Vault RNA: a 109-nucleotide RNA from Biomphalaria glabrata. On this family, see Stadler et al., Mol Biol Evol 2009: "Evolution of Vault RNAs". From the family's description: This family of RNAs are found as part of the enigmatic vault ribonucleoprotein complex. The match comes from Rfam's covariance-model search (36 bits). Lineage of the source: Eukaryota > Euthyneura > Hygrophila > Lymnaeoidea > Biomphalaria.
RNA sequence: UGGGAAGCUUGGCAGAGGGGUUACUUCGUUUAUUUCAAAACCUUUGAUCUGCCUUCAAAUACUGCGGGUUCAAAACCCGUUGCUGCCCCUCGCGCUAUCUGUCCACAAU
Numbered sequence: 001u002g003g004g005a006a007g008c009u010u011g012g013c014a015g016a017g018g019g020g021u022u023a024c025u026u027c028g029u030u031u032a033u034u035u036c037a038a039a040a041c042c043u044u045u046g047a048u049c050u051g052c053c054u055u056c057a058a059a060u061a062c063u064g065c066g067g068g069u070u071c072a073a074a075a076c077c078c079g080u081u082g083c084u085g086c087c088c089c090u091c092g093c094g095c096u097a098u099c100u101g102u103c104c105a106c107a108a109u
Base pairs, nucleotide, nucleotide: 002104003103004102006100007099012093013092015090017089018088019087020086025074026073028071